[Rfam]
RNA sequence: UGAAAACGUUUUAAAAUAGAGACGUUCUUGAAUUUCGUUUAAAAGGAAAAGAAUUGCCAAAUGAUUUUGGAAGGAGAUUAUUCUUUUUCAUUUCAACGAAAAAAAAAUAUAUAAGGAGGAAGAACAAGA
Numbered sequence: 001u002g003a004a005a006a007c008g009u010u011u012u013a014a015a016a017u018a019g020a021g022a023c024g025u026u027c028u029u030g031a032a033u034u035u036c037g038u039u040u041a042a043a044a045g046g047a048a049a050a051g052a053a054u055u056g057c058c059a060a061a062u063g064a065u066u067u068u069g070g071a072a073g074g075a076g077a078u079u080a081u082u083c084u085u086u087u088u089c090a091u092u093u094c095a096a097c098g099a100a101a102a103a104a105a106a107a108u109a110u111a112u113a114a115g116g117a118g119g120a121a122g123a124a125c126a127a128g129a
Stems, first nucleotide, its partner, number of pairs: 006025007026123004033101007041093003045089010057070004